[Rfam]
RNA sequence: CUCCGAUAAUGGCAAACUUACUGAAAGGUAAGGACGCAAAGCUGCGGGUCUAAGGCAAUUGCUAAGACAGCCGGGCUACCGAA
Numbered sequence: 001c002u003c004c005g006a007u008a009a010u011g012g013c014a015a016a017c018u019u020a021c022u023g024a025a026a027g028g029u030a031a032g033g034a035c036g037c038a039a040a041g042c043u044g045c046g047g048g049u050c051u052a053a054g055g056c057a058a059u060u061g062c063u064a065a066g067a068c069a070g071c072c073g074g075g076c077u078a079c080c081g082a083a
Base pairs, nucleotide, nucleotide: 012037013036017032018031019030020029021028022027040077041076042075043074045073046072047071048068049067050066055062056061